[Rfam]
RNA sequence: UGUUUCCUGGGUUGUUCGUAGUGGCUUAACGCCCUUGAGCCUAUGAGCAAAACCCCGGAAGAUAUCUGUGAGUUCGGUGUGCAUGUCCGUGCGUCGGAAAGCCUAAAGAGCUUCAGUUACUUCCACCUUGAACCACUGGGUUCAAGGCCAAAAGUCAAAACGGCAACUUGGGAAACUC
Numbered sequence: 001u002g003u004u005u006c007c008u009g010g011g012u013u014g015u016u017c018g019u020a021g022u023g024g025c026u027u028a029a030c031g032c033c034c035u036u037g038a039g040c041c042u043a044u045g046a047g048c049a050a051a052a053c054c055c056c057g058g059a060a061g062a063u064a065u066c067u068g069u070g071a072g073u074u075c076g077g078u079g080u081g082c083a084u085g086u087c088c089g090u091g092c093g094u095c096g097g098a099a100a101g102c103c104u105a106a107a108g109a110g111c112u113u114c115a116g117u118u119a120c121u122u123c124c125a126c127c128u129u130g131a132a133c134c135a136c137u138g139g140g141u142u143c144a145a146g147g148c149c150a151a152a153a154g155u156c157a158a159a160a161c162g163g164c165a166a167c168u169u170g171g172g173a174a175a176c177u178c
Stems, first nucleotide, its partner, number of pairs: 002176014017162003031148001033147002036144006057124003061120001063119002066116001070113006081102002086098004
Dot-bracket structure: .((((((((((((((.(((...........(.((.((((((...............(((.(.((.(...((((((.....((...((((.....))))..)).....))))))..).))).)))..............)))))).)))...........)))))))))))))))))..
RNA: 6S / SsrS RNA
Organism: Maribrevibacterium harenarium